[Rfam]
RNA sequence: UGAAAGUCCUGGACGGCAGCCGUGAAUUCGUCAUGCUUGCAUGUCGAAUUCAUGGAUAUCGGACAGGCUAGAACGUAUGAGUAAGUAGGCGUUAGCCCGGAUUACGAAUACGUUCAGCAGUUGCGGAGCAACUGACUUUCA
Numbered sequence: 001u002g003a004a005a006g007u008c009c010u011g012g013a014c015g016g017c018a019g020c021c022g023u024g025a026a027u028u029c030g031u032c033a034u035g036c037u038u039g040c041a042u043g044u045c046g047a048a049u050u051c052a053u054g055g056a057u058a059u060c061g062g063a064c065a066g067g068c069u070a071g072a073a074c075g076u077a078u079g080a081g082u083a084a085g086u087a088g089g090c091g092u093u094a095g096c097c098c099g100g101a102u103u104a105c106g107a108a109u110a111c112g113u114u115c116a117g118c119a120g121u122u123g124c125g126g127a128g129c130a131a132c133u134g135a136c137u138u139u140c141a
Stems, first nucleotide, its partner, number of pairs: 001141007008067004014061003018057001020055010032043004071115008081105004088098002090095001118134007
Clostridiales-1 RNA: a 141-nucleotide sequence from Ruminococcus sp. AM42-11.
The organism belongs to Ruminococcus, within Bacteria.
The family has 194 seed sequences and 1,172 matches in Rfam 15.1.
The match comes from Rfam's covariance-model search (82 bits).
By type it is a small RNA.